[Rfam]
Nucleotides: 082
Stems, first nucleotide, its partner, number of pairs: 003049005020038004025033001
Number, partner (000 for none) and nucleotide at each position: 001000c002000u003049g004048c005047c006046g007045a008000g009000g010000g011000g012000c013000g014000c015000u016000g017000c018000g019000a020038c021037c022036g023035g024000a025033u026000c027000c028000c029000u030000u031000g032000a033025g034000g035023c036022c037021g038020g039000c040000c041000a042000g043000g044000c045007u046006c047005g048004g049003c050000c051000a052000g053000g054000u055000g056000g057000u058000a059000c060000u061000g062000c063000a064000a065000c066000a067000a068000c069000g070000g071000c072000g073000c074000c075000c076000g077000g078000c079000c080000a081000g082000a
Annotation: Rfam assigns this 82-nucleotide RNA sequence from Stenotrophomonas maltophilia to the family "SAH (S-adenosyl-L-homocysteine) riboswitch aptamer".